[Rfam]
The record is a 464-nucleotide RNA sequence from Galbula dea, which matches "Vertebrate telomerase RNA" in Rfam.
About the family: Telomerase is a ribonucleoprotein reverse transcriptase that synthesises telomeric DNA. Telomerase RNAs differ greatly in sequence and structure between vertebrates, ciliates and yeasts, but they share a 5' pseudoknot structure close to the template sequence. Vertebrate telomerase RNAs have a 3' H/ACA snoRNA-like domain.
The literature on the family includes a 2000 paper in Cell by Chen et al., "Secondary structure of vertebrate telomerase RNA".
Gene Ontology terms of the family: telomerase activity, telomere maintenance via telomerase and telomerase catalytic core complex.
By type it is a non-coding RNA gene.
The base pairs follow the family's consensus structure, which is taken from published work.
The family is grouped with related families in Rfam's "Telomerase clan".

RNA sequence: UGGCGGGUGGGGAGGCCCUGGUGUGACUAACCCUAAUGGCUGCUGCCGCACUCCCCGCACCCGUCCGCUGUUUUACUCGCUGACUUUCAGCGGACGAGGGGAGUAGCCCGGGGUAGGGGGUGGAGGGAUUCCGCCAUCAAAAAACGUCAGCGAGGGGUCUCCUCACCCAGGCCCGCCCUGGGGUCCCCGUGUCCCACAUCCCUCUCCUGGCAACCGGGGGCCCGCCGCGGAGGCUCCCGCUUGCCGCAACCUCCCCGGAGGCCGCGGUCGGCCGGCUCCUGCCACUGCCGCCGCGAAGAGUUCGUCUCUGUCAGCCUCAGCGGCGGCCGGGAGCGGAGGGGAAGCGUCCCCCUCUGCGCCGGGGUACCCCAGCAGAGCAAAACGGGAGCGGCGCCCCCUGGGGCCCACCCGCCGCGCUUCCCUCAGCCGUGGGGUGCGCGCGGCCGGCGCCGCUCCCGACACGC
Numbered sequence: 001u002g003g004c005g006g007g008u009g010g011g012g013a014g015g016c017c018c019u020g021g022u023g024u025g026a027c028u029a030a031c032c033c034u035a036a037u038g039g040c041u042g043c044u045g046c047c048g049c050a051c052u053c054c055c056c057g058c059a060c061c062c063g064u065c066c067g068c069u070g071u072u073u074u075a076c077u078c079g080c081u082g083a084c085u086u087u088c089a090g091c092g093g094a095c096g097a098g099g100g101g102a103g104u105a106g107c108c109c110g111g112g113g114u115a116g117g118g119g120g121u122g123g124a125g126g127g128a129u130u131c132c133g134c135c136a137u138c139a140a141a142a143a144a145c146g147u148c149a150g151c152g153a154g155g156g157g158u159c160u161c162c163u164c165a166c167c168c169a170g171g172c173c174c175g176c177c178c179u180g181g182g183g184u185c186c187c188c189g190u191g192u193c194c195c196a197c198a199u200c201c202c203u204c205u206c207c208u209g210g211c212a213a214c215c216g217g218g219g220g221c222c223c224g225c226c227g228c229g230g231a232g233g234c235u236c237c238c239g240c241u242u243g244c245c246g247c248a249a250c251c252u253c254c255c256c257g258g259a260g261g262c263c264g265c266g267g268u269c270g271g272c273c274g275g276c277u278c279c280u281g282c283c284a285c286u287g288c289c290g291c292c293g294c295g296a297a298g299a300g301u302u303c304g305u306c307u308c309u310g311u312c313a314g315c316c317u318c319a320g321c322g323g324c325g326g327c328c329g330g331g332a333g334c335g336g337a338g339g340g341g342a343a344g345c346g347u348c349c350c351c352c353u354c355u356g357c358g359c360c361g362g363g364g365u366a367c368c369c370c371a372g373c374a375g376a377g378c379a380a381a382a383c384g385g386g387a388g389c390g391g392c393g394c395c396c397c398c399u400g401g402g403g404c405c406c407a408c409c410c411g412c413c414g415c416g417c418u419u420c421c422c423u424c425a426g427c428c429g430u431g432g433g434g435u436g437c438g439c440g441c442g443g444c445c446g447g448c449g450c451c452g453c454u455c456c457c458g459a460c461a462c463g464c
Stems, first nucleotide, its partner, number of pairs: 002173003005168014050104005062096009079151006085144003178372007216352005221346001223344001233334007243324005263295005269290004274283003297309004385456011412443005419434004